[Rfam]
The record is a 74-nucleotide sequence from Alligator sinensis, which matches "Mammalian CPEB3 ribozyme" in Rfam. NCBI's taxonomy places the organism under Eukaryota, Metazoa, Craniata, Tetrapoda, Alligator.
RNA sequence: UUGCAAGUUCAUGGCCAUAGUAGAAGUGUUCAUGGCACGACCUGUCAGAUUCCGAUGAAUCUACAAAUUCUGCU
Numbered sequence: 001u002u003g004c005a006a007g008u009u010c011a012u013g014g015c016c017a018u019a020g021u022a023g024a025a026g027u028g029u030u031c032a033u034g035g036c037a038c039g040a041c042c043u044g045u046c047a048g049a050u051u052c053c054g055a056u057g058a059a060u061c062u063a064c065a066a067a068u069u070c071u072g073c074u
Stems, first nucleotide, its partner, number of pairs: 013042002016039001019074007026038003047062006